Shown here is a 67-nucleotide RNA sequence from Sinocyclocheilus grahami, a member of the family "mir-8/mir-141/mir-200 microRNA precursor family". It scores 60 bits against the family's covariance model. The base pairs follow the family's consensus structure, which was predicted with RNAalifold. Clan: mir-8 microRNA precursor clan. A reference for the family is Lagos-Quintana et al. (2001), "Identification of novel genes coding for small expressed RNAs", Science.
RNA sequence: AUCUCCAUCUUAUAAGGCAGUUUUGGAUGUUAUUCCUUCUCUAAUACUGCCUGGUAAUGAUGCAGAU
Numbered sequence: 001a002u003c004u005c006c007a008u009c010u011u012a013u014a015a016g017g018c019a020g021u022u023u024u025g026g027a028u029g030u031u032a033u034u035c036c037u038u039c040u041c042u043a044a045u046a047c048u049g050c051c052u053g054g055u056a057a058u059g060a061u062g063c064a065g066a067u
Stems, first nucleotide, its partner, number of pairs: 002066003006062004010057004015052007023044005